[Rfam]
RNA sequence: UCCCUGCUUUUCCUCCCUGAGCAGGAGCCUGAACGUGUGACAGCGCAAAGGCUUUUCAGCCCUGGCCUCGUGCCGGGGCUUUUCUUU
Numbered sequence: 001u002c003c004c005u006g007c008u009u010u011u012c013c014u015c016c017c018u019g020a021g022c023a024g025g026a027g028c029c030u031g032a033a034c035g036u037g038u039g040a041c042a043g044c045g046c047a048a049a050g051g052c053u054u055u056u057c058a059g060c061c062c063u064g065g066c067c068u069c070g071u072g073c074c075g076g077g078g079c080u081u082u083u084c085u086u087u
Base pairs, nucleotide, nucleotide: 003025004024005023006022007021008020027052028051029050030049059079060078061077062076063075064074065073066072
Background: The family of this 87-nucleotide RNA sequence from Rhizobacter sp. AJA081-3 is "Burkholderia RNA 7 (anti-hemB)". This RNA motif was identified by computational search in b-proteobacteria Burkholderia. Co-purified with Hfq, expression confirmed by Northern blot. The family has 26 seed sequences and 479 matches in Rfam 15.1. The match comes from Rfam's covariance-model search (65 bits). Its family is annotated with protein binding and bacterial biofilm matrix in the Gene Ontology. The family's RNA type in Rfam is small RNA.